[Rfam]
RNA sequence: CUCUGGAGAGACCAAUAAAUGGCGCCGAAGGGCAAAUUCCAUAGAUGGAAUAAUCUCUCAGGCAAAAGGACAGAG
Numbered sequence: 001c002u003c004u005g006g007a008g009a010g011a012c013c014a015a016u017a018a019a020u021g022g023c024g025c026c027g028a029a030g031g032g033c034a035a036a037u038u039c040c041a042u043a044g045a046u047g048g049a050a051u052a053a054u055c056u057c058u059c060a061g062g063c064a065a066a067a068g069g070a071c072a073g074a075g
Stems, first nucleotide, its partner, number of pairs: 001075005012022003024063003027059002031057002037050002